[Rfam]
Shown here is a 170-nucleotide RNA from Salmo trutta, a member of the family "U2 spliceosomal RNA". NCBI's taxonomy places the organism under Eukaryota, Deuterostomia, Vertebrata, Actinopterygii, Salmo. The family has 208 seed sequences and 71,512 matches in Rfam 15.1. On this family, see Zwieb, Nucleic Acids Res 1997: "The uRNA database". Gene Ontology terms of the family: U2 snRNP, mRNA branch site recognition and pre-mRNA branch point binding. Rfam classes the family as a spliceosomal small nuclear RNA.
RNA sequence: AAAAAUUAAAAAUUAAAAUUAAAAAAAAUCUGUUCUUAUCUGAUACGUCCCCCAUCGGGGGACUACAUAUUAAAUGGAUUUUUCGAACAGGGAGUCGGAAAUGGGGCUUGCUCCGUCCGCUCCACGCAUCGACCCGGUAUUGCAGUACCUCCGGGAACGGUGCAACACUU
Numbered sequence: 001a002a003a004a005a006u007u008a009a010a011a012a013u014u015a016a017a018a019u020u021a022a023a024a025a026a027a028a029u030c031u032g033u034u035c036u037u038a039u040c041u042g043a044u045a046c047g048u049c050c051c052c053c054a055u056c057g058g059g060g061g062a063c064u065a066c067a068u069a070u071u072a073a074a075u076g077g078a079u080u081u082u083u084c085g086a087a088c089a090g091g092g093a094g095u096c097g098g099a100a101a102u103g104g105g106g107c108u109u110g111c112u113c114c115g116u117c118c119g120c121u122c123c124a125c126g127c128a129u130c131g132a133c134c135c136g137g138u139a140u141u142g143c144a145g146u147a148c149c150u151c152c153g154g155g156a157a158c159g160g161u162g163c164a165a166c167a168c169u170u
Base pairs, nucleotide, nucleotide: 001014002013037045038044039043047063048062049061050060051059052058053057091123092122093121094120095119097117098116103114104113105112106111126163127162128161129160130159131158133155134154135153136152137151